[Rfam]
The record is a 115-nucleotide sequence from Apolygus lucorum, which matches "Potassium channel RNA editing signal" in Rfam. Rfam describes the family as follows. This family represents a group of sequences related to the human potassium channel Kv1.1 hairpin element which directs the efficient modification of an adenosine to inosine by an adenosine deaminase acting on RNA (ADAR). The ADAR modification causes an isoleucine/valine recoding event which lies in the ion-conducting pore of the potassium channel. It is thought that this editing event targets the process of fast inactivation and allows a more rapid recovery from inactivation at negative potentials.

RNA sequence: UUGCAGAUAUGGUGACAUGGUGCCGGAGACGAUAGCAGGAAAGAUCGUGGGAGGCGUGUGCUCGCUAAGCGGAGUGCUCGUCAUUGCUCUUCCUGUGCCUGUGAUAGUCUCUAAU
Number, nucleotide and partner (000 for none) at each position: 001u000002u114003g000004c000005a112006g111007a000008u000009a108010u107011g000012g105013u000014g000015a102016c101017a100018u000019g098020g000021u000022g096023c095024c000025g000026g000027a000028g000029a000030c000031g000032a000033u000034a000035g000036c000037a000038g078039g077040a000041a075042a000043g000044a000045u000046c000047g000048u000049g000050g000051g063052a062053g000054g000055c000056g000057u000058g000059u000060g000061c000062u052063c051064g000065c000066u000067a000068a000069g000070c000071g000072g000073a000074g000075u041076g000077c039078u038079c000080g000081u000082c000083a000084u000085u000086g000087c000088u000089c000090u000091u000092c000093c000094u000095g023096u022097g000098c019099c000100u017101g016102u015103g000104a000105u012106a000107g010108u009109c000110u000111c006112u005113a000114a002115u000